[Rfam]
RNA: MIR2619 microRNA precursor family
Organism: Medicago truncatula
Nucleotides: 170
Stems, first nucleotide, its partner, number of pairs: 001170002004167005012159003016155006024147004029142008038133006072099002075096007
Number, partner (000 for none) and nucleotide at each position: 001170a002169a003000a004167c005166c006165g007164c008163c009000c010000c011000c012159u013158a014157a015000a016155u017154u018153u019152u020151g021150c022000a023000a024147c025146u026145g027144u028000a029142g030141c031140a032139g033138u034137u035136u036135u037000c038133g039132c040131c041130c042129c043128c044000c045000a046000a047000g048000a049000c050000c051000a052000a053000u054000u055000u056000u057000u058000g059000g060000u061000a062000a063000a064000a065000a066000a067000a068000u069000a070000a071000c072099a073098c074000a075096u076095g077094g078093c079092a080091c081090c082000u083000c084000a085000c086000u087000u088000a089000g090081g091080g092079u093078g094077c095076c096075a097000c098073g099072u100000c101000a102000g103000c104000g105000u106000a107000g108000a109000c110000c111000g112000a113000g114000u115000c116000a117000a118000a119000a120000u121000u122000g123000g124000c125000c126000g127000u128043g129042g130041g131040g132039g133038c134000c135036a136035a137034a138033a139032c140031u141030g142029c143000c144027a145026c146025a147024g148000a149000a150021g151020c152019a153018a154017a155016a156000c157014u158013u159012a160000g161000g162000g163008g164007g165006c166005g167004g168000u169002u170001u